Bacterial RNase P class A: a 382-nucleotide RNA from Nocardioides cavernaquae. It is annotated as a ribozyme. The organism belongs to Nocardioides, within Bacteria. Gene Ontology terms of the family: dimeric ribonuclease P complex, tRNA processing and ribonuclease P activity. The match comes from Rfam's covariance-model search (297 bits). Pairs were carried over by alignment from the consensus structure, which is taken from published work.

RNA sequence: GGGGCUGGCCGGGCGACCGCGUUCGUGUCCUUCGGGAUGCGGCCGAGGAAGGUCCGGGCUCCACAGAGCAGGGUGGUCGCCAACAGCGACCCGGGGCAACCCGCGGGACAGUGCCACAGAGAACAGACCGCCUUCCGGGCAACCGGGAGGUAAGGGUGAAACGGUGGUGCAAGAGACCACCAGUACGCCGGGUGACCGGCGUAGCUAGGUAAACCCCACCCGGAGCAAGAUCGAACAGCACGUGCCUGAGGGCUGCUCGCCCGAGCGUGCGGGUAGAUCGCUUGAGGCGGCCGGCAACGGUCGUCCUAGAUGGAUGGUCGCCAGCCGGUCGGUCGUGAGGCCGACCGGGGAACAAAACCCGGCCUAUGAGCCAGCCCCUCCG
Numbered sequence: 001g002g003g004g005c006u007g008g009c010c011g012g013g014c015g016a017c018c019g020c021g022u023u024c025g026u027g028u029c030c031u032u033c034g035g036g037a038u039g040c041g042g043c044c045g046a047g048g049a050a051g052g053u054c055c056g057g058g059c060u061c062c063a064c065a066g067a068g069c070a071g072g073g074u075g076g077u078c079g080c081c082a083a084c085a086g087c088g089a090c091c092c093g094g095g096g097c098a099a100c101c102c103g104c105g106g107g108a109c110a111g112u113g114c115c116a117c118a119g120a121g122a123a124c125a126g127a128c129c130g131c132c133u134u135c136c137g138g139g140c141a142a143c144c145g146g147g148a149g150g151u152a153a154g155g156g157u158g159a160a161a162c163g164g165u166g167g168u169g170c171a172a173g174a175g176a177c178c179a180c181c182a183g184u185a186c187g188c189c190g191g192g193u194g195a196c197c198g199g200c201g202u203a204g205c206u207a208g209g210u211a212a213a214c215c216c217c218a219c220c221c222g223g224a225g226c227a228a229g230a231u232c233g234a235a236c237a238g239c240a241c242g243u244g245c246c247u248g249a250g251g252g253c254u255g256c257u258c259g260c261c262c263g264a265g266c267g268u269g270c271g272g273g274u275a276g277a278u279c280g281c282u283u284g285a286g287g288c289g290g291c292c293g294g295c296a297a298c299g300g301u302c303g304u305c306c307u308a309g310a311u312g313g314a315u316g317g318u319c320g321c322c323a324g325c326c327g328g329u330c331g332g333u334c335g336u337g338a339g340g341c342c343g344a345c346c347g348g349g350g351a352a353c354a355a356a357a358c359c360c361g362g363c364c365u366a367u368g369a370g371c372c373a374g375c376c377c378c379u380c381c382g
Stems, first nucleotide, its partner, number of pairs: 001378009011367001012322007020045002023042006050365003054362005059225004066258004071221005076090005091105001092103004106216002111214002113210003128155002130151009163181006183205001184203008229279004238270006250262004286305008